[Rfam]
RNA sequence: CUUCAAGGAACCCAGCCAGAGCGGGCGGUCCCGGUCCUGGCCGUACGCGGACAGCAGCGCCGUCGCCUC
Numbered sequence: 001c002u003u004c005a006a007g008g009a010a011c012c013c014a015g016c017c018a019g020a021g022c023g024g025g026c027g028g029u030c031c032c033g034g035u036c037c038u039g040g041c042c043g044u045a046c047g048c049g050g051a052c053a054g055c056a057g058c059g060c061c062g063u064c065g066c067c068u069c
Base pairs, nucleotide, nucleotide: 016024017023031065032059033058037054038053039052041050042049043048